[Rfam]
RNA sequence: CGAAAUCAUGUUAGAUCCUGGACAAAUAUGAAGUAAAUUGUUUUUAUGCAUCAAUUACUUGAUAUUCAUCCUUGAACUAAAUGGUUUUA
Number, nucleotide and partner (000 for none) at each position: 001c000002g088003a087004a086005a085006u084007c083008a082009u081010g000011u000012u079013a078014g077015a000016u075017c074018c000019u000020g071021g070022a069023c000024a000025a066026a065027u064028a063029u062030g000031a060032a059033g058034u057035a056036a055037a000038u054039u053040g052041u000042u050043u000044u000045u000046a000047u000048g000049c000050a042051u000052c040053a039054a038055u036056u035057a034058c033059u032060u031061g000062a029063u028064a027065u026066u025067c000068a000069u022070c021071c020072u000073u000074g017075a016076a000077c014078u013079a012080a000081a009082u008083g007084g006085u005086u004087u003088u002089a000